[Rfam]
RNA sequence: UUGUUCUGUUCAAUUCUAUGUGGGCAGUUCUACUUUUUUUUUUCAUGGGAAAGAAGCCAAUGUCAUUCAGCCAAAAUACAAAAGCCAAGAUGGUAUCUUACUAUUGACCCAAUGAA
Numbered sequence: 001u002u003g004u005u006c007u008g009u010u011c012a013a014u015u016c017u018a019u020g021u022g023g024g025c026a027g028u029u030c031u032a033c034u035u036u037u038u039u040u041u042u043u044c045a046u047g048g049g050a051a052a053g054a055a056g057c058c059a060a061u062g063u064c065a066u067u068c069a070g071c072c073a074a075a076a077u078a079c080a081a082a083a084g085c086c087a088a089g090a091u092g093g094u095a096u097c098u099u100a101c102u103a104u105u106g107a108c109c110c111a112a113u114g115a116a
Stems, first nucleotide, its partner, number of pairs: 007026006046070001048068003